[Rfam]
Nucleotides: 108
Base pairs, nucleotide, nucleotide: 014077015076016075018073024071025070026069027068028067029066030065031064034044035043046063047062049060050059051058087108088107089106090105091104092103093102094101095100
Number, partner (000 for none) and nucleotide at each position: 001000g002000c003000g004000a005000u006000g007000a008000g009000c010000u011000g012000a013000g014077u015076u016075g017000u018073g019000u020000a021000a022000g023000c024071c025070g026069a027068g028067u029066a030065a031064c032000a033000c034044a035043c036000c037000u038000u039000u040000u041000u042000g043035g044034u045000a046063c047062g048000c049060a050059c051058u052000a053000u054000g055000u056000g057000g058051a059050g060049u061000g062047c063046g064031g065030u066029u067028a068027c069026u070025c071024g072000c073018c074000u075016c076015a077014a078000u079000a080000c081000g082000c083000g084000a085000a086000a087108g088107a089106c090105g091104c092103c093102u094101g095100g096000g097000c098000a099000a100095c101094c102093a103092g104091g105090c106089g107088u108087c